Notes
Glycine riboswitch aptamer: a 113-nucleotide RNA sequence from Streptomyces sp. DvalAA-14. The match comes from Rfam's covariance-model search (43 bits).
[Rfam]
RNA sequence: GUCACUCUGGAAAGCAGGACCGUACCGGAAGUUCGGCGCGGGUCCUCACCGACGGUGCAAGCCGCCCCAGCGGGGCGGUGAAGCUCUCAGGUUCCGAUGACAGAGGGGGAGGC
Dot-bracket structure: .((.(((((......((((((...................)))))).(((((..(.(...((((((.......))))))....).))).)))........))))).)).....